Record summary: GP20-b RNA: a 60-nucleotide RNA sequence. Pairs were carried over by alignment from the consensus structure, which is taken from published work. The family's RNA type in Rfam is cis-regulatory element.

RNA sequence: UGACCGCUCCGAAGUCGUAAAACUACGGAUAGUAAGAGAAGCAACCUCGUAAAAAGCGUA
Dot-bracket structure: ((((....[[[.[))))......].]]].......(((.......)))............